[Rfam]
RNA: Lysine riboswitch aptamer
Organism: Limosilactobacillus mucosae
RNA sequence: UAAAAGAGAAGAGGUGCGAGUCUCAUCAGUAGACCAGGCUGGAUGCUUCAGAAUCAAUGCCUGGCUGAAAGGGAUGCUCGCCGAAACGCGUAUCGACUGAAGGCUUUGCGCGUUGGGCCGUAGUUAAAUAAAUUACGGACUGUCGCAGAAGUUUCUGCGGGGCGCUUCCAUGAUU
Numbered sequence: 001u002a003a004a005a006g007a008g009a010a011g012a013g014g015u016g017c018g019a020g021u022c023u024c025a026u027c028a029g030u031a032g033a034c035c036a037g038g039c040u041g042g043a044u045g046c047u048u049c050a051g052a053a054u055c056a057a058u059g060c061c062u063g064g065c066u067g068a069a070a071g072g073g074a075u076g077c078u079c080g081c082c083g084a085a086a087c088g089c090g091u092a093u094c095g096a097c098u099g100a101a102g103g104c105u106u107u108g109c110g111c112g113u114u115g116g117g118c119c120g121u122a123g124u125u126a127a128a129u130a131a132a133u134u135a136c137g138g139a140c141u142g143u144c145g146c147a148g149a150a151g152u153u154u155c156u157g158c159g160g161g162g163c164g165c166u167u168c169c170a171u172g173a174u175u
Stems, first nucleotide, its partner, number of pairs: 008168004016081006023074002032066001034064006085114008095104001115141002118138008143160007